[Rfam]
The record is a 98-nucleotide sequence from Oleomonas cavernae, which matches "Glycine riboswitch aptamer" in Rfam.

RNA sequence: AGAUCCCCUGUGGGAGAGAUCGGGUGCUGCGUGCAGCAUCCGGCGCCGAAGGAGCAACCGCCCCGGAAACUCUCAGGCCCACGGACCGCAGGGGAGAC
Numbered sequence: 001a002g003a004u005c006c007c008c009u010g011u012g013g014g015a016g017a018g019a020u021c022g023g024g025u026g027c028u029g030c031g032u033g034c035a036g037c038a039u040c041c042g043g044c045g046c047c048g049a050a051g052g053a054g055c056a057a058c059c060g061c062c063c064c065g066g067a068a069a070c071u072c073u074c075a076g077g078c079c080c081a082c083g084g085a086c087c088g089c090a091g092g093g094g095a096g097a098c
Stems, first nucleotide, its partner, number of pairs: 006093008020043007045078003048074002052072003058066002
Dot-bracket structure: .....((((((((......(((((((..........))))))).(((((..(((...((.....))...))))).))).......)))))))).....

Rfam's curators write: This family represents the bacterial glycine riboswitch.